RNA sequence: GGUGGUAGGCCCACCGAAGUCCGCUGUCGGAAGCUGGCUUCAAACCACCUCAAGCGGCUGCCGUAAAGAGCGGAGGUCGUGAGCGUUGAGGUCAAAGCGCGAACAAGAGUUCGGCAGGU
Numbered sequence: 001g002g003u004g005g006u007a008g009g010c011c012c013a014c015c016g017a018a019g020u021c022c023g024c025u026g027u028c029g030g031a032a033g034c035u036g037g038c039u040u041c042a043a044a045c046c047a048c049c050u051c052a053a054g055c056g057g058c059u060g061c062c063g064u065a066a067a068g069a070g071c072g073g074a075g076g077u078c079g080u081g082a083g084c085g086u087u088g089a090g091g092u093c094a095a096a097g098c099g100c101g102a103a104c105a106a107g108a109g110u111u112c113g114g115c116a117g118g119u
Stems, first nucleotide, its partner, number of pairs: 001015005016041006023034003046118001048091006054080002057077003061073004097115002101111002

Group II catalytic intron D1-D4-2: a 119-nucleotide RNA from Xenorhabdus koppenhoeferi. Lineage of the source: Bacteria > Pseudomonadati > Pseudomonadota > Enterobacterales > Xenorhabdus. A search with the family's covariance model found it, with a score of 100 bits. From the family's description: Group II introns are found in rRNA, tRNA and mRNA of organelles in fungi, plants and protists, and also in mRNA in bacteria. On this family, see Lehmann and Schmidt, Crit Rev Biochem Mol Biol 2003: "Group II introns: structure and catalytic versatility of large natural ribozymes".